[Rfam]
Nucleotides: 083
Base pairs, nucleotide, nucleotide: 001074002073003072004071005070006069007068008067010066011065014062015061016057017056018055019054020053021052026042027041028040030038031037
Number, partner (000 for none) and nucleotide at each position: 001074a002073g003072u004071u005070g006069g007068u008067c009000c010066g011065a012000a013000g014062g015061u016057u017056g018055u019054g020053g021052g022000u023000u024000a025000u026042u027041g028040u029000u030038a031037a032000a033000c034000u035000g036000a037031u038030u039000a040028a041027c042026a043000u044000u045000g046000u047000c048000u049000c050000c051000c052021c053020c054019c055018a056017c057016a058000a059000c060000c061015g062014u063000g064000u065011u066010u067008g068007a069006c070005u071004g072003g073002c074001u075000g076000c077000g078000u079000g080000u081000u082000u083000u

The record is an 83-nucleotide RNA from Equus caballus, which matches "Y RNA" in Rfam. The base pairs follow the family's consensus structure, which is taken from published work. It is annotated as a non-coding RNA gene.